[Rfam]
Nucleotides: 139
Stems, first nucleotide, its partner, number of pairs: 003064008026052004075131003083122003088117002093112006
Number, partner (000 for none) and nucleotide at each position: 001000g002000c003064u004063g005062u006061c007060c008059u009058a010057g011000a012000u013000c014000a015000g016000c017000a018000c019000c020000a021000c022000a023000g024000g025000c026052a027051u028050g029049g030000c031000a032000c033000a034000g035000c036000u037000g038000c039000u040000c041000a042000g043000c044000u045000g046000a047000g048000c049029c050028u051027g052026u053000g054000a055000c056000a057010u058009u059008g060007g061006g062005g063004c064003a065000a066000a067000g068000a069000g070000c071000a072000a073000g074000u075131g076130g077129c078000u079000g080000u081000u082000u083122c084121u085120a086000c087000g088117c089116u090000c091000a092000g093112u094111g095110c096109u097108c098107a099000g100000a101000a102000g103000c104000c105000c106000g107098u108097g109096a110095g111094c112093a113000c114000u115000a116089a117088g118000a119000a120085u121084g122083g123000u124000u125000u126000g127000u128000a129077g130076c131075c132000u133000g134000a135000c136000a137000u138000u139000u
Notes: A member of the RNA family "Small nucleolar RNA SNORA43", 139 nucleotides long. The family's consensus secondary structure was predicted with RNAfold. It is one of the family's seed sequences. Rfam's curators write: ACA43 is a member of the H/ACA class of snoRNA that guide the sites of modification of uridines to pseudouridines. The family has 21 seed sequences and 492 matches in Rfam 15.1.